Rfam assigns this 135-nucleotide RNA sequence from Pseudolycoriella hygida to the family "Small nucleolar RNA snoR639/H1".
Gene Ontology terms of the family: RNA processing and nucleolus.
Pairs were carried over by alignment from the consensus structure.
By type it is an H/ACA-box small nucleolar RNA.

RNA sequence: ACCCCACCAAUAUUAAGCCGGCGAUUGAGUCCUUUUCAUGAUUCAAUGGUGUGCUAGCUGUGGGAACAAUAUUCAUUUAGACUUGUGUAUGAAAGAUCGGUUUGUCUGAUUUUUCAAAGGAAUUUUCUAAGUACA
Numbered sequence: 001a002c003c004c005c006a007c008c009a010a011u012a013u014u015a016a017g018c019c020g021g022c023g024a025u026u027g028a029g030u031c032c033u034u035u036u037c038a039u040g041a042u043u044c045a046a047u048g049g050u051g052u053g054c055u056a057g058c059u060g061u062g063g064g065a066a067c068a069a070u071a072u073u074c075a076u077u078u079a080g081a082c083u084u085g086u087g088u089a090u091g092a093a094a095g096a097u098c099g100g101u102u103u104g105u106c107u108g109a110u111u112u113u114u115c116a117a118a119g120g121a122a123u124u125u126u127c128u129a130a131g132u133a134c135a
Stems, first nucleotide, its partner, number of pairs: 021050002024047005078129004090116011